[Rfam]
RNA sequence: GAGAGGAAACAUGGCAAGAUGUUGGCAUAGCUGUUUGUAUUUAUGGCCCUGCUAUGCCUCCAUAUUGCCAUUUUUAACUUCC
Numbered sequence: 001g002a003g004a005g006g007a008a009a010c011a012u013g014g015c016a017a018g019a020u021g022u023u024g025g026c027a028u029a030g031c032u033g034u035u036u037g038u039a040u041u042u043a044u045g046g047c048c049c050u051g052c053u054a055u056g057c058c059u060c061c062a063u064a065u066u067g068c069c070a071u072u073u074u075u076a077a078c079u080u081c082c
Stems, first nucleotide, its partner, number of pairs: 007075003011071007019063003024058008
The record is an 82-nucleotide RNA from Carassius auratus, which matches "mir-31 microRNA precursor family" in Rfam. A reference for the family is Ma et al. (2023), "Structure of pre-miR-31 reveals an active role in Dicer processing", bioRxiv [Preprint]. Taxonomically the source falls in Carassius (Eukaryota, Gnathostomata, Teleostei, Cypriniphysae). Rfam 15.1 lists 1,181 matches to the family in 783 species.